[Rfam]
RNA sequence: UGGCGAAGGUCCCAGCAGGGAGUUGGGAACAAUAAUGAAUUGAGGCCUCUCAAACAAAUAAUGCCUUCGCAAAUCCAUUUUGCCGAAUCGUAGGAUGCCCAUUUAUUCUACUUUUGGAGCGUCUUUAACCCUCGGCUACAUUUUA
Numbered sequence: 001u002g003g004c005g006a007a008g009g010u011c012c013c014a015g016c017a018g019g020g021a022g023u024u025g026g027g028a029a030c031a032a033u034a035a036u037g038a039a040u041u042g043a044g045g046c047c048u049c050u051c052a053a054a055c056a057a058a059u060a061a062u063g064c065c066u067u068c069g070c071a072a073a074u075c076c077a078u079u080u081u082g083c084c085g086a087a088u089c090g091u092a093g094g095a096u097g098c099c100c101a102u103u104u105a106u107u108c109u110a111c112u113u114u115u116g117g118a119g120c121g122u123c124u125u126u127a128a129c130c131c132u133c134g135g136c137u138a139c140a141u142u143u144u145a
Stems, first nucleotide, its partner, number of pairs: 003070007011020003025051003033043001035041001082136005094123002097120002099117003
Notes
Small nucleolar RNA snoR145: a 145-nucleotide sequence from Hibiscus syriacus. The family has 19 seed sequences and 286 matches in Rfam 15.1. Taxonomically the source falls in Hibiscus (Eukaryota, rosids, Malvales, Malvaceae). The match comes from Rfam's covariance-model search (98 bits). Gene Ontology terms of the family: RNA processing and nucleolus.